[Rfam]
RNA: Purine riboswitch aptamer
Organism: Clostridiales bacterium PH28_bin88
RNA sequence: UUGGUGGCGCCGAUGAGGGACUGUAUAAUUGCGGGGAUUUGGCCCGCAAGUUUCUACCGGGUAACCUUGAAUUACCCUGCUACAGCCCGAAAGUGUACCUAG
Number, nucleotide and partner (000 for none) at each position: 001u000002u000003g000004g000005u000006g000007g000008c000009g000010c000011c000012g000013a000014u000015g000016a000017g000018g088019g087020a000021c085022u084023g083024u082025a081026u000027a000028a000029u049030u048031g047032c046033g045034g044035g043036g000037a000038u000039u000040u000041g000042g000043c035044c034045c033046g032047c031048a030049a029050g000051u000052u000053u000054c000055u000056a000057c000058c000059g077060g076061g075062u074063a073064a072065c000066c000067u000068u000069g000070a000071a000072u064073u063074a062075c061076c060077c059078u000079g000080c000081u025082a024083c023084a022085g021086c000087c019088c018089g000090a000091a000092a000093g000094u000095g000096u000097a000098c000099c000100u000101a000102g000